[Rfam]
RNA sequence: CCCAGGGCGUUGCCCUGGGCUAUUUUUCGACGCCCCGUUGGGGCU
Numbered sequence: 001c002c003c004a005g006g007g008c009g010u011u012g013c014c015c016u017g018g019g020c021u022a023u024u025u026u027u028c029g030a031c032g033c034c035c036c037g038u039u040g041g042g043g044c045u
Stems, first nucleotide, its partner, number of pairs: 001019008032044005
Record summary:
A member of the RNA family "Acido-Lenti-1 RNA" from Botrimarina colliarenosi, 45 nucleotides long. Rfam classes the family as a small RNA. A search with the family's covariance model found it, with a score of 37 bits. Lineage of the source: Bacteria > Pseudomonadati > Planctomycetota > Planctomycetia > Botrimarina.